[Rfam]
RNA sequence: GAGACCUUACUUGAACAGGAUCUGUUCUAUAGGAUCGUACCGCUUCAUCCUUUACCAAUAAGGAGCAAGCACUCAAGUCUGGGUUGAUGAACCAGGACCCCUGUGCCAGAGCGUGAUUAACGGCCAGGAUGCUCCAGCUGGUGCCAUCCGAUGGCUAUGGAGGAUCGUUCCUGCCAGGCCUGCCCUGGUCGGGGUGGCUCAGGGGUUGUCUGACAGACU
Numbered sequence: 001g002a003g004a005c006c007u008u009a010c011u012u013g014a015a016c017a018g019g020a021u022c023u024g025u026u027c028u029a030u031a032g033g034a035u036c037g038u039a040c041c042g043c044u045u046c047a048u049c050c051u052u053u054a055c056c057a058a059u060a061a062g063g064a065g066c067a068a069g070c071a072c073u074c075a076a077g078u079c080u081g082g083g084u085u086g087a088u089g090a091a092c093c094a095g096g097a098c099c100c101c102u103g104u105g106c107c108a109g110a111g112c113g114u115g116a117u118u119a120a121c122g123g124c125c126a127g128g129a130u131g132c133u134c135c136a137g138c139u140g141g142u143g144c145c146a147u148c149c150g151a152u153g154g155c156u157a158u159g160g161a162g163g164a165u166c167g168u169u170c171c172u173g174c175c176a177g178g179c180c181u182g183c184c185c186u187g188g189u190c191g192g193g194g195u196g197g198c199u200c201a202g203g204g205g206u207u208g209u210c211u212g213a214c215a216g217a218c219u
Base pairs, nucleotide, nucleotide: 001038003035005033006032007031013027014026015025016024017023018022043069044068045067048064049063050062051061052060077218078217079216080215081214097206098205099204100203101202102201103200105198106197107196108195110169111168112167113166120158122156123155124154125153127149128148129147130146131145132143134141135140170192171191173189174188175187176186177185178184
The record is a 219-nucleotide RNA sequence from Digitaria exilis, which matches "Plant small nucleolar RNA U3" in Rfam. The family's RNA type in Rfam is C/D-box small nucleolar RNA. NCBI's taxonomy places the organism under Eukaryota, Panicoideae, Panicodae, Anthephorinae, Digitaria. Small nucleolar RNAs (snoRNAs) are involved in the processing and modification of rRNA in the nucleolus. Its Rfam clan is "U3 clan". The match comes from Rfam's covariance-model search (148 bits). Its family is annotated with nucleolus and RNA processing in the Gene Ontology.